[Rfam]
RNA sequence: UUCUUAUCUAGAGAGGUGGAGGGACUGGCCCGAUGAAGCCCGGCAACCGGUAUAUGUUCAUAUACAUAUACAAAGGUGCCAAUUCCUGCGACGCAUUGCGUUGAGAGAUGAGGG
Numbered sequence: 001u002u003c004u005u006a007u008c009u010a011g012a013g014a015g016g017u018g019g020a021g022g023g024a025c026u027g028g029c030c031c032g033a034u035g036a037a038g039c040c041c042g043g044c045a046a047c048c049g050g051u052a053u054a055u056g057u058u059c060a061u062a063u064a065c066a067u068a069u070a071c072a073a074a075g076g077u078g079c080c081a082a083u084u085c086c087u088g089c090g091a092c093g094c095a096u097u098g099c100g101u102u103g104a105g106a107g108a109u110g111a112g113g114g
Stems, first nucleotide, its partner, number of pairs: 001114008013041001015040003021031003025088001027086002042080004047076002050071007084106001089103006